RNA sequence: UCGAGUUGGCUGUCGAGUAUCCUACCGGGCUUUUCACGGUCAACCAUAAUAAUGUAGGAGUGCUAUAGUGGCCCGUAUCGCUGGCAUUAACAUUCCAGAG
Dot-bracket structure: ....(((((((((.......[[...[[[[....{{)))))))))...........................]]]].......]].............}}.
Numbered sequence: 001u002c003g004a005g006u007u008g009g010c011u012g013u014c015g016a017g018u019a020u021c022c023u024a025c026c027g028g029g030c031u032u033u034u035c036a037c038g039g040u041c042a043a044c045c046a047u048a049a050u051a052a053u054g055u056a057g058g059a060g061u062g063c064u065a066u067a068g069u070g071g072c073c074c075g076u077a078u079c080g081c082u083g084g085c086a087u088u089a090a091c092a093u094u095c096c097a098g099a100g
Stems, first nucleotide, its partner, number of pairs: 005044009021084002026075004034099002